RNA sequence: AGCAAUAGGGCUUUCAUGGGUGGUAACUCACUCCCUUCUUUGAAAGGGGGUGAUAGCAUGACAGUUUAUGAGACGUUAGUCUUGAUGGUUUCUUUUGCAACUUUAAUUGUAGCCAUACUGUCACAACAAAAAAAGUAACCGCCCAUAGAACGCCUAGCAAGCACAUGGGUUGGUUACUUUUUUCUGACCUAAUAGUGUGAGUUGCCCUUGAAGGGCUAUUGCUAAGACCAGAGGUGUUGGCGCACCUUUG
Numbered sequence: 001a002g003c004a005a006u007a008g009g010g011c012u013u014u015c016a017u018g019g020g021u022g023g024u025a026a027c028u029c030a031c032u033c034c035c036u037u038c039u040u041u042g043a044a045a046g047g048g049g050g051u052g053a054u055a056g057c058a059u060g061a062c063a064g065u066u067u068a069u070g071a072g073a074c075g076u077u078a079g080u081c082u083u084g085a086u087g088g089u090u091u092c093u094u095u096u097g098c099a100a101c102u103u104u105a106a107u108u109g110u111a112g113c114c115a116u117a118c119u120g121u122c123a124c125a126a127c128a129a130a131a132a133a134a135g136u137a138a139c140c141g142c143c144c145a146u147a148g149a150a151c152g153c154c155u156a157g158c159a160a161g162c163a164c165a166u167g168g169g170u171u172g173g174u175u176a177c178u179u180u181u182u183u184c185u186g187a188c189c190u191a192a193u194a195g196u197g198u199g200a201g202u203u204g205c206c207c208u209u210g211a212a213g214g215g216c217u218a219u220u221g222c223u224a225a226g227a228c229c230a231g232a233g234g235u236g237u238u239g240g241c242g243c244a245c246c247u248u249u250g
Base pairs, nucleotide, nucleotide: 001223002222003221004220005219007217009203010202011201012200013150014149015148016146017145018144019143020142022139024137025136028053029052030051032049033048034047035046036045060122061121062120063119064118065117074087075086097113098112204216205215206214229250230249231248232247233246234245235244236243237242

Overview
Rfam assigns this 250-nucleotide sequence from Heyndrickxia sporothermodurans to the family "BsrG". The family's RNA type in Rfam is small RNA. Its family is annotated with toxin activity and autolysis in the Gene Ontology. The literature on the family includes a 2013 paper in Nucleic Acids Res by Jahn and Brantl, "One antitoxin--two functions: SR4 controls toxin mRNA decay and translation". Rfam 15.1 lists 614 matches to the family in 343 species. bsrE, bsrG and bsrH pair through intermolecular interactions with antisense sRNAs. They form type I toxin/antitoxin system that includes an mRNA encoding for a short, toxic peptide (bsrE, bsrG and bsrH) and an antitoxin that is comprised of an antisense RNA. bsrG encodes a 39-amino-acid toxin, and the 180 nucleotide antisense sRNA called SR4 acts as the antitoxin (they overlap by 123 nucleotides). SR4 interaction with the 3'UTR of bsrG RNA promotes bsrG degradation and inhibits its translation.